[Rfam]
RNA sequence: CGUAUGAUACGCAGGCCAGCCCCGUGAAGCCUGCACAGCGCGGUGGCGGCGUGCAGCAAGGCUGCACAUGAAUCACCACCCGGUUAAG
Numbered sequence: 001c002g003u004a005u006g007a008u009a010c011g012c013a014g015g016c017c018a019g020c021c022c023c024g025u026g027a028a029g030c031c032u033g034c035a036c037a038g039c040g041c042g043g044u045g046g047c048g049g050c051g052u053g054c055a056g057c058a059a060g061g062c063u064g065c066a067c068a069u070g071a072a073u074c075a076c077c078a079c080c081c082g083g084u085u086a087a088g
Stems, first nucleotide, its partner, number of pairs: 015050003019047003022043005051067006
Overview
A member of the RNA family "Peptidase-S11 RNA" from Erwinia tracheiphila, 88 nucleotides long.